[Rfam]
RNA sequence: UUGAGGUGAAGUUCUGUUAUACACUUUGACUGUGGCUACAUGGAAGUCAGUGCAUCACAGAACUUUGUCUCGAG
Numbered sequence: 001u002u003g004a005g006g007u008g009a010a011g012u013u014c015u016g017u018u019a020u021a022c023a024c025u026u027u028g029a030c031u032g033u034g035g036c037u038a039c040a041u042g043g044a045a046g047u048c049a050g051u052g053c054a055u056c057a058c059a060g061a062a063c064u065u066u067g068u069c070u071c072g073a074g
Stems, first nucleotide, its partner, number of pairs: 004070013022052004028048004